[Rfam]
The family of this 77-nucleotide RNA sequence from Gouania willdenowi is "mir-92 microRNA precursor family". A reference for the family is Houbaviy et al. (2003), "Embryonic stem cell-specific MicroRNAs", Dev Cell. About the family: This family represents the microRNA precursor mir-92. Human miR-92 has two predicted hairpin precursor sequences: mir-92-1 on chromosome 13 and mir-92-2 on chromosome X. miR-92 has also been cloned from mouse embryonic stem cells. Rfam 15.1 lists 1,347 matches to the family in 653 species. It scores 80 bits against the family's covariance model.
RNA sequence: CUUUCUGCACAGGUGGGGAUUGGUAGCAAUGCUGUGUAGCUGAAGGUAUUGCACUUGUCCCGGCCUGUUAAGAAAAG
Dot-bracket structure: ...(((..((((((.(((((.(((.((((((((...........))))))))))).))))).))))))..)))....